The record is a 79-nucleotide sequence from Hemibagrus wyckioides, which matches "mir-17 microRNA precursor family" in Rfam. The family's consensus secondary structure was predicted with RNAalifold. The literature on the family includes a 2001 paper in Science by Lagos-Quintana et al., "Identification of novel genes coding for small expressed RNAs". The family has 234 seed sequences and 4,687 matches in Rfam 15.1.

[Rfam]
RNA sequence: UGUGUAUUGCCAAAGUGCUUACAGUGCAGGUAGUAAUAAGAAAUACCUACUGCAGUGGAGGCACUUCUAGCAAUGUGCC
Dot-bracket structure: ...((((.((..((((((((.((.(((.(((((.............)))))))).)).))))))))...)).))))...